[Rfam]
RNA sequence: GUCGGUCUUCGGUAGUGGCCUUUCGGCGAGCGCCGGCGGGCUUCGAUCGUUGACCGCC
Numbered sequence: 001g002u003c004g005g006u007c008u009u010c011g012g013u014a015g016u017g018g019c020c021u022u023u024c025g026g027c028g029a030g031c032g033c034c035g036g037c038g039g040g041c042u043u044c045g046a047u048c049g050u051u052g053a054c055c056g057c058c
Stems, first nucleotide, its partner, number of pairs: 001058001003056005010049004017042005023036005
Shown here is a 58-nucleotide RNA sequence from Nocardia vermiculata, a member of the family "Actino-pnp RNA". The family's consensus secondary structure is taken from published work. By type it is a cis-regulatory element. The match comes from Rfam's covariance-model search (48 bits). The organism belongs to Nocardia, within Bacteria.